The record is an 86-nucleotide RNA sequence from Rostratula benghalensis, which matches "Small nucleolar RNA SNORD127" in Rfam. By type it is a C/D-box small nucleolar RNA. Rfam 15.1 lists 541 matches to the family in 527 species. The organism belongs to Rostratula, within Eukaryota. The base pairs follow the family's consensus structure, which was predicted with WAR. A reference for the family is Yang et al. (2006), "snoSeeker: an advanced computational package for screening of guide and orphan snoRNA genes in the human genome", Nucleic Acids Res.
RNA sequence: AGGCAACGAUGAUGACAGGAAUUGUCACUGGAUGUGACGCUCCGUUACCACGUGGAGACACCAGUCCCUCUAAACUGAUGUUGCCC
Numbered sequence: 001a002g003g004c005a006a007c008g009a010u011g012a013u014g015a016c017a018g019g020a021a022u023u024g025u026c027a028c029u030g031g032a033u034g035u036g037a038c039g040c041u042c043c044g045u046u047a048c049c050a051c052g053u054g055g056a057g058a059c060a061c062c063a064g065u066c067c068c069u070c071u072a073a074a075c076u077g078a079u080g081u082u083g084c085c086c
Base pairs, nucleotide, nucleotide: 002085003084004083005082006081007080
Dot-bracket structure: .((((((........................................................................)))))).